The record is a 103-nucleotide RNA from Psychrobacillus sp. BL-248-WT-3, which matches "SAM riboswitch aptamer (S box leader)" in Rfam.
Nucleotides: 103
Base pairs, nucleotide, nucleotide: 001103002102003101004100005099006098007097008096013042014041015040016039017038021031022030023029025077026076027075028074043069044068045067046066048065049064050061052059073095079091080090081089082088
Number, partner (000 for none) and nucleotide at each position: 001103u002102u003101c004100u005099u006098a007097u008096c009000a010000a011000g012000a013042g014041a015040g016039a017038c018000g019000g020000a021031g022030g023029g024000a025077u026076u027075g028074g029023c030022c031021c032000u033000a034000u035000g036000a037000u038017g039016u040015c041014u042013c043069a044068g045067c046066a047000a048065c049064c050061a051000g052059c053000c054000u055000u056000u057000a058000a059052g060000g061050u062000g063000u064049g065048g066046u067045g068044c069043u070000a071000a072000a073095u074028c075027c076026a077025a078000u079091a080090g081089a082088c083000a084000u085000u086000a087000a088082g089081u090080c091079u092000u093000g094000a095073a096008g097007a098006u099005a100004a101003g102002a103001a
Overview: Its family is annotated with regulation of gene expression in the Gene Ontology.